RNA: Plant signal recognition particle RNA
RNA sequence: GACAAGUAACCGUAGCUUGUAACCCAAGUGGGGGCAUUAAGGUGAUGGAACAUGACUAUGUCAUGCUAGGUGGGAUUGGUUGAGCAAAUGUUGGCCUGCCCACUCCAAGUCGAGAGUUGAGGCAUGGUGUUUGUGUGAAGACACAAGUAUCAUGUCUCCUAGACAAGAGGGCAAAGCGUGAGGCUGGUUUUACAUAGCAGCGAACACCUCUAACUCUUGACAGUGGAGGGAUCAUAGGCUGUUGUUAUACCAUUCCACAUGUCUGGUUUGUCAAAGUUAACUUGAACCAUAA
Numbered sequence: 001g002a003c004a005a006g007u008a009a010c011c012g013u014a015g016c017u018u019g020u021a022a023c024c025c026a027a028g029u030g031g032g033g034g035c036a037u038u039a040a041g042g043u044g045a046u047g048g049a050a051c052a053u054g055a056c057u058a059u060g061u062c063a064u065g066c067u068a069g070g071u072g073g074g075a076u077u078g079g080u081u082g083a084g085c086a087a088a089u090g091u092u093g094g095c096c097u098g099c100c101c102a103c104u105c106c107a108a109g110u111c112g113a114g115a116g117u118u119g120a121g122g123c124a125u126g127g128u129g130u131u132u133g134u135g136u137g138a139a140g141a142c143a144c145a146a147g148u149a150u151c152a153u154g155u156c157u158c159c160u161a162g163a164c165a166a167g168a169g170g171g172c173a174a175a176g177c178g179u180g181a182g183g184c185u186g187g188u189u190u191u192a193c194a195u196a197g198c199a200g201c202g203a204a205c206a207c208c209u210c211u212a213a214c215u216c217u218u219g220a221c222a223g224u225g226g227a228g229g230g231a232u233c234a235u236a237g238g239c240u241g242u243u244g245u246u247a248u249a250c251c252a253u254u255c256c257a258c259a260u261g262u263c264u265g266g267u268u269u270g271u272c273a274a275a276g277u278u279a280a281c282u283u284g285a286a287c288c289a290u291a292a
Stems, first nucleotide, its partner, number of pairs: 001016001004013001006011001023032003043292001045290004051284002053280001055278001056276002059273002062270002065267007073256003077252004081247003085244002092241007100230002103228005109221009119158018166211005177202003185194002